[Rfam]
RNA sequence: GUCAUGGACCCCGGUUUGAAAACUGGGGCUUGCAAGAAGUUUGAACGCUUCUUGUACCCCCAACGGUUGGCAAGCUGAAACAUGACCAGAUCCAGCCACCGCUCUUCUUCGGAGGAGCGAUGGGGCUACGUUAUCAGGAAGUGUCAACGUUCGUACCGGAGGAUGCGCGGCCAGUCUUCCGCUCUACAACCAGCAGGUUAAACAGACCGUGGGUAUAGUCAGUGCUUGCUGGAUGUACCGCCUGAUAACCUCAUCGAGGCCACCAUCAC
Numbered sequence: 001g002u003c004a005u006g007g008a009c010c011c012c013g014g015u016u017u018g019a020a021a022a023c024u025g026g027g028g029c030u031u032g033c034a035a036g037a038a039g040u041u042u043g044a045a046c047g048c049u050u051c052u053u054g055u056a057c058c059c060c061c062a063a064c065g066g067u068u069g070g071c072a073a074g075c076u077g078a079a080a081c082a083u084g085a086c087c088a089g090a091u092c093c094a095g096c097c098a099c100c101g102c103u104c105u106u107c108u109u110c111g112g113a114g115g116a117g118c119g120a121u122g123g124g125g126c127u128a129c130g131u132u133a134u135c136a137g138g139a140a141g142u143g144u145c146a147a148c149g150u151u152c153g154u155a156c157c158g159g160a161g162g163a164u165g166c167g168c169g170g171c172c173a174g175u176c177u178u179c180c181g182c183u184c185u186a187c188a189a190c191c192a193g194c195a196g197g198u199u200a201a202a203c204a205g206a207c208c209g210u211g212g213g214u215a216u217a218g219u220c221a222g223u224g225c226u227u228g229c230u231g232g233a234u235g236u237a238c239c240g241c242c243u244g245a246u247a248a249c250c251u252c253a254u255c256g257a258g259g260c261c262a263c264c265a266u267c268a269c
Stems, first nucleotide, its partner, number of pairs: 001086006010028002012025002015022002029036002089255003094127004130249009153187002157181008167263001169261004190232009202223002205220003209216002
A member of the RNA family "HNH endonuclease-associated RNA and ORF (HEARO) RNA" from Ktedonobacter racemifer, 269 nucleotides long.
The source organism's lineage runs through Bacteria, Chloroflexota, Ktedonobacteria, Ktedonobacterales and Ktedonobacter racemifer.
The family has 139 seed sequences and 952 matches in Rfam 15.1.
The literature on the family includes a 2009 paper in Nature by Weinberg et al., "Exceptional structured noncoding RNAs revealed by bacterial metagenome analysis".
The family's consensus secondary structure is taken from published work.